[Rfam]
RNA sequence: GGCGGGGGAAGCUCAUCAGCUGGGCCACGCGCUGAGUGCUCUUCACUCCAUCAGCACCUGGGAAGGUCUGAGACUGGGGCCUCCUGCGGCCCUAACCGUUCUCUCUGGUCUCUCCCAGAGUGGGGAGGUGAGUUCCCAGAGAGCAGGGCUCCACGCAUGGGCAGACUGGGCAGGAGAAGCCCCUCCCCCCAAAAAGAGUGGCUUCUGGAGUGAACGAACAAUAAUUGUUCACUAUAGUUGUCAGAGUCAGAAAAAUGAGGCUAGGAAAGAAAUGGAAAUGAGUGAAAACAAACAGGAAAUUUUUCUUUCUUGUUUCAACUUUCCCUUCC
Numbered sequence: 001g002g003c004g005g006g007g008g009a010a011g012c013u014c015a016u017c018a019g020c021u022g023g024g025c026c027a028c029g030c031g032c033u034g035a036g037u038g039c040u041c042u043u044c045a046c047u048c049c050a051u052c053a054g055c056a057c058c059u060g061g062g063a064a065g066g067u068c069u070g071a072g073a074c075u076g077g078g079g080c081c082u083c084c085u086g087c088g089g090c091c092c093u094a095a096c097c098g099u100u101c102u103c104u105c106u107g108g109u110c111u112c113u114c115c116c117a118g119a120g121u122g123g124g125g126a127g128g129u130g131a132g133u134u135c136c137c138a139g140a141g142a143g144c145a146g147g148g149c150u151c152c153a154c155g156c157a158u159g160g161g162c163a164g165a166c167u168g169g170g171c172a173g174g175a176g177a178a179g180c181c182c183c184u185c186c187c188c189c190c191a192a193a194a195a196g197a198g199u200g201g202c203u204u205c206u207g208g209a210g211u212g213a214a215c216g217a218a219c220a221a222u223a224a225u226u227g228u229u230c231a232c233u234a235u236a237g238u239u240g241u242c243a244g245a246g247u248c249a250g251a252a253a254a255a256u257g258a259g260g261c262u263a264g265g266a267a268a269g270a271a272a273u274g275g276a277a278a279u280g281a282g283u284g285a286a287a288a289c290a291a292a293c294a295g296g297a298a299a300u301u302u303u304u305c306u307u308u309c310u311u312g313u314u315u316c317a318a319c320u321u322u323c324c325c326u327u328c329c
Stems, first nucleotide, its partner, number of pairs: 001329002004326001007323003012259005022059003034048005069317004081210004098110001100108002112127005128206001130204005148199003260313002263310004
RNA: Nuclear RNase P